The family of this 104-nucleotide sequence is "SAM riboswitch aptamer (S box leader)".
RNA sequence: GACUUAUCCAGAAAGACUGAGGGAAUGGGCCCUUUGAAGUCUUAGCAACCCGGGCUAGCCGGGUGCUACCUCCCACUCCGAUGCACAUCGGAGGAAGAUAAGGU
Number, nucleotide and partner (000 for none) at each position: 001g104002a000003c102004u101005u100006a099007u098008c097009c000010a000011g000012a000013a043014a042015g041016a040017c039018u000019g000020a000021g032022g031023g030024a000025a000026u075027g074028g073029g072030c023031c022032c021033u000034u000035u000036g000037a000038a000039g017040u016041c015042u014043u013044a067045g066046c065047a064048a000049c063050c062051c061052g060053g059054g000055c000056u000057a000058g000059c053060c052061g051062g050063g049064u047065g046066c045067u044068a000069c000070c000071u096072c029073c028074c027075a026076c093077u092078c091079c090080g089081a088082u000083g000084c000085a000086c000087a000088u081089c080090g079091g078092a077093g076094g000095a000096a071097g008098a007099u006100a005101a004102g003103g000104u001
The SAM riboswitch is found upstream of a number of genes which code for proteins involved in methionine or cysteine biosynthesis in Gram-positive bacteria. The SAM riboswitch acts at the level of transcription termination control. The predicted structure consists of a complex stem-loop region followed by a single stem loop terminator region. An alternative and mutually exclusive form involves bases in the 3' segment of helix 1 with those in the 5' region of helix 5 to form a structure termed the anti-terminator form.
The match comes from Rfam's covariance-model search (75 bits).
The family's consensus secondary structure is taken from published work.